[Rfam]
RNA sequence: CUGCAAAUAUUCUCUCUGUUCUGAUCUUGUGAUGAUCAGGACAGGCUAAAUAUUUUCUAUGUUAAGACCGUGCAUGUAUCUCCAAACCUAGUUCUUUCCCUAGAUGUGGUUUUCUAAAUGUUGCUGAUAAAC
Numbered sequence: 001c002u003g004c005a006a007a008u009a010u011u012c013u014c015u016c017u018g019u020u021c022u023g024a025u026c027u028u029g030u031g032a033u034g035a036u037c038a039g040g041a042c043a044g045g046c047u048a049a050a051u052a053u054u055u056u057c058u059a060u061g062u063u064a065a066g067a068c069c070g071u072g073c074a075u076g077u078a079u080c081u082c083c084a085a086a087c088c089u090a091g092u093u094c095u096u097u098c099c100c101u102a103g104a105u106g107u108g109g110u111u112u113u114c115u116a117a118a119u120g121u122u123g124c125u126g127a128u129a130a131a132c
Stems, first nucleotide, its partner, number of pairs: 003057001005055001016044011067125001069123002072121002082109003086105001088103004
A member of the RNA family "Small nucleolar RNA SNORA72" from Nannospalax galili, 132 nucleotides long. The literature on the family includes a 1997 paper in Genes Dev by Ganot et al., "The family of box ACA small nucleolar RNAs is defined by an evolutionarily conserved secondary structure and ubiquitous sequence elements essential for RNA accumulation". Rfam classes the family as an H/ACA-box small nucleolar RNA. Gene Ontology terms of the family: nucleolus and RNA processing. U72 is a member of the H/ACA class of snoRNAs. The snoRNA gene is located in intron 4 of the ribosomal L30 protein gene in human, mouse and chicken.